[Rfam]
RNA sequence: UUGCACAGUGAACACCCAAGUGUGCUCUGUAGUUCCCUUGGUUUCAGUCCUGUGCUAGAGCAAUCUGUACUUUUCCUCUGCAUUGGAAGGAUUUGCAUUCCUUUUACGUGUAUUCAGAAGGACAGCACAUUC
Numbered sequence: 001u002u003g004c005a006c007a008g009u010g011a012a013c014a015c016c017c018a019a020g021u022g023u024g025c026u027c028u029g030u031a032g033u034u035c036c037c038u039u040g041g042u043u044u045c046a047g048u049c050c051u052g053u054g055c056u057a058g059a060g061c062a063a064u065c066u067g068u069a070c071u072u073u074u075c076c077u078c079u080g081c082a083u084u085g086g087a088a089g090g091a092u093u094u095g096c097a098u099u100c101c102u103u104u105u106a107c108g109u110g111u112a113u114u115c116a117g118a119a120g121g122a123c124a125g126c127a128c129a130u131u132c
Stems, first nucleotide, its partner, number of pairs: 003055006010049001016041005022035001024033003057071002060068003077118004081110003085105007
Dot-bracket structure: ..((((((.(.....(((((.(.(((....))).).))))).......))))))).((.(((...))).)).....(((((((.(((((((.......)))))))..)))....))))..............
This 132-nucleotide RNA sequence from Calypte anna belongs to the Rfam family "Small nucleolar RNA SNORA22". The match comes from Rfam's covariance-model search (122 bits). Rfam 15.1 lists 883 matches to the family in 606 species. Rfam's curators write: ACA22 is a member of the H/ACA class of snoRNA that guide the sites of modification of uridines to pseudouridines. Rfam classes the family as an H/ACA-box small nucleolar RNA.